[Rfam]
RNA sequence: GUUGUCCGGAAGAUGGCGUGGGGGGUGACCCACAGGUCCCUGUGACCUCGUUCCCCCGGGAAGGUCUGAGAAAAGGCCACGCUCUCCAUCUCAGGGUAGGAAGCGUUGGGUUCGAGAAGGACCCCGGUCGUGAGAGCGGGAGGCUGUAACAGAAACGUGACCCUGCGGGGUUUGAACCACAGCCUCGGUCGGCAGUUCCUGAGUGCGAUUGCCACCGAACACAAUUCAGACUAGUCUUCGGACAAC
Numbered sequence: 001g002u003u004g005u006c007c008g009g010a011a012g013a014u015g016g017c018g019u020g021g022g023g024g025g026u027g028a029c030c031c032a033c034a035g036g037u038c039c040c041u042g043u044g045a046c047c048u049c050g051u052u053c054c055c056c057c058g059g060g061a062a063g064g065u066c067u068g069a070g071a072a073a074a075g076g077c078c079a080c081g082c083u084c085u086c087c088a089u090c091u092c093a094g095g096g097u098a099g100g101a102a103g104c105g106u107u108g109g110g111u112u113c114g115a116g117a118a119g120g121a122c123c124c125c126g127g128u129c130g131u132g133a134g135a136g137c138g139g140g141a142g143g144c145u146g147u148a149a150c151a152g153a154a155a156c157g158u159g160a161c162c163c164u165g166c167g168g169g170g171u172u173u174g175a176a177c178c179a180c181a182g183c184c185u186c187g188g189u190c191g192g193c194a195g196u197u198c199c200u201g202a203g204u205g206c207g208a209u210u211g212c213c214a215c216c217g218a219a220c221a222c223a224a225u226u227c228a229g230a231c232u233a234g235u236c237u238u239c240g241g242a243c244a245a246c
Base pairs, nucleotide, nucleotide: 001246002245003244004243008239009238010237016213021057022056023055024054025053034048035047036046037045038044066229067228068227069226070225075190076189077188078187109123110122111121112120113119124139125138126137128135129134140186141185142184143183144182145181146180160171161170162169
Shown here is a 246-nucleotide RNA from Angiostrongylus costaricensis, a member of the family "Nuclear RNase P". It scores 114 bits against the family's covariance model. The family's RNA type in Rfam is ribozyme. Ribonuclease P (RNase P) is a ubiquitous endoribonuclease, found in archaea, bacteria and eukarya as well as chloroplasts and mitochondria. Its best characterised activity is the generation of mature 5'-ends of tRNAs by cleaving the 5'-leader elements of precursor-tRNAs. Cellular RNase Ps are ribonucleoproteins. RNA from bacterial RNase Ps retains its catalytic activity in the absence of the protein subunit, i.e. it is a ribozyme. NCBI's taxonomy places the organism under Eukaryota, Opisthokonta, Bilateria, Metastrongylidae, Angiostrongylus.